[Rfam]
RNA sequence: GGAAGAUCAACAUUCCCGGUGGAAUGGCCGGUCUUCAAAACCGGAGGGGGCCGCCAGCGGUCCCGGGCAGGUUCGACUCCUGUGAUCUUCC
Numbered sequence: 001g002g003a004a005g006a007u008c009a010a011c012a013u014u015c016c017c018g019g020u021g022g023a024a025u026g027g028c029c030g031g032u033c034u035u036c037a038a039a040a041c042c043g044g045a046g047g048g049g050g051c052c053g054c055c056a057g058c059g060g061u062c063c064c065g066g067g068c069a070g071g072u073u074c075g076a077c078u079c080c081u082g083u084g085a086u087c088u089u090c091c
Stems, first nucleotide, its partner, number of pairs: 001091009011026006028044005047064005068082004